[Rfam]
Source information
A member of the RNA family "Group II catalytic intron D1-D4-3" from Paenibacillus sp. IHBB 10380, 172 nucleotides long. Rfam links the family to the GO term Group II intron splicing. The family has 406 seed sequences and 4,274 matches in Rfam 15.1. It scores 144 bits against the family's covariance model.
RNA sequence: UCCACCGUGAGGUGGAAUCUGAAGGAAGCCGGCGGCAAAUCUCUGGUCUGAGGAACACGAACUUCAUAUAAGGCUAACGUACGUUGGAUGAGUUUGCUAUACAAACCAAAGUCCAUACUGUCGAGAUGUACGAGAGUAAAUGAAGCAGAUAGAUGGAGAGGAAGAUAGCGUU
Numbered sequence: 001u002c003c004a005c006c007g008u009g010a011g012g013u014g015g016a017a018u019c020u021g022a023a024g025g026a027a028g029c030c031g032g033c034g035g036c037a038a039a040u041c042u043c044u045g046g047u048c049u050g051a052g053g054a055a056c057a058c059g060a061a062c063u064u065c066a067u068a069u070a071a072g073g074c075u076a077a078c079g080u081a082c083g084u085u086g087g088a089u090g091a092g093u094u095u096g097c098u099a100u101a102c103a104a105a106c107c108a109a110a111g112u113c114c115a116u117a118c119u120g121u122c123g124a125g126a127u128g129u130a131c132g133a134g135a136g137u138a139a140a141u142g143a144a145g146c147a148g149a150u151a152g153a154u155g156g157a158g159a160g161g162a163a164g165a166u167a168g169c170g171u172u
Base pairs, nucleotide, nucleotide: 001016002015003014004013005012006011028172030170031169036164040159041158042157043156044155045154046150047149048148049147050146062145063144064143065142066141067140073137074136075135078132079131080130081129082128083127086114087113088112089111092107094105095104